[Rfam]
RNA sequence: GAGCGAUAAUGGCAAACCCAUCGAAAGAUGGGGACGCAAAGCCUCAGACCUAAGGGACCCCCUAUGGUGGCUGGGUUACCGAA
Dot-bracket structure: ...........((...((((((....))))))...))..((((.((((((....((....))...)))..)))))))......
RNA: c-di-GMP-I riboswitch aptamer
Organism: Ammoniphilus sp. CFH 90114